[Rfam]
RNA sequence: UGGUGUGGAUAGGAGUACAAUACGUCUCGUCCCGUGAAGGAAAGACAACACUAACGGGGCGGACCGAUUUUCUUCCGGUCCUGUCGGUCGGCGUAAUUGGGGCCUGCGCGGCAGAUGUCUAUGAAUCCCGUCAGGUCCGUGAGGAAGCAGCGGUAAGUGGACCUCCCUGGGUGACGUAGGGUUACCCGAUUGCGCUGACCGGCAGGACCGGGUGAAAGUCGGUUUUUCGUUGUCUGUCGCACUG
Numbered sequence: 001u002g003g004u005g006u007g008g009a010u011a012g013g014a015g016u017a018c019a020a021u022a023c024g025u026c027u028c029g030u031c032c033c034g035u036g037a038a039g040g041a042a043a044g045a046c047a048a049c050a051c052u053a054a055c056g057g058g059g060c061g062g063a064c065c066g067a068u069u070u071u072c073u074u075c076c077g078g079u080c081c082u083g084u085c086g087g088u089c090g091g092c093g094u095a096a097u098u099g100g101g102g103c104c105u106g107c108g109c110g111g112c113a114g115a116u117g118u119c120u121a122u123g124a125a126u127c128c129c130g131u132c133a134g135g136u137c138c139g140u141g142a143g144g145a146a147g148c149a150g151c152g153g154u155a156a157g158u159g160g161a162c163c164u165c166c167c168u169g170g171g172u173g174a175c176g177u178a179g180g181g182u183u184a185c186c187c188g189a190u191u192g193c194g195c196u197g198a199c200c201g202g203c204a205g206g207a208c209c210g211g212g213u214g215a216a217a218g219u220c221g222g223u224u225u226u227u228c229g230u231u232g233u234c235u236g237u238c239g240c241a242c243u244g
Base pairs, nucleotide, nucleotide: 001244002243003242004241005240006239007238011027012026013025015023016022017021032040033039045237046236047235050233051232053230055229056228057227058226059225063223064222065221066220067219068218069217070216071215072214076210077209079207080206081205082204083203084202087199088198090196091195092194094192095191096190097189098188099187100186101185103180104179105178106177107176108175109171112169113168114167117162118161119160120159121158122157128153129152130151131150136145137144138143